A member of the RNA family "TPP riboswitch aptamer (THI element)" from Lactococcus termiticola, 93 nucleotides long. The organism belongs to Lactococcus, within Bacteria. It scores 64 bits against the family's covariance model. Its family is annotated with thiamine pyrophosphate binding in the Gene Ontology.
[Rfam]
RNA sequence: UUUUUGCACAAUGGGUAUCGCGAAAGCGGUUGAGAAAAACCAUCUGACCUGAUCAGGUUCAUACCUGCGUAGGGAUGCUGCAGUAGCUUUUUU
Numbered sequence: 001u002u003u004u005u006g007c008a009c010a011a012u013g014g015g016u017a018u019c020g021c022g023a024a025a026g027c028g029g030u031u032g033a034g035a036a037a038a039a040c041c042a043u044c045u046g047a048c049c050u051g052a053u054c055a056g057g058u059u060c061a062u063a064c065c066u067g068c069g070u071a072g073g074g075a076u077g078c079u080g081c082a083g084u085a086g087c088u089u090u091u092u093u
Base pairs, nucleotide, nucleotide: 006081007080008079009077010076011043012042013041014040016037017030018029019028020027021026048073049072050071051070054067055066056065057064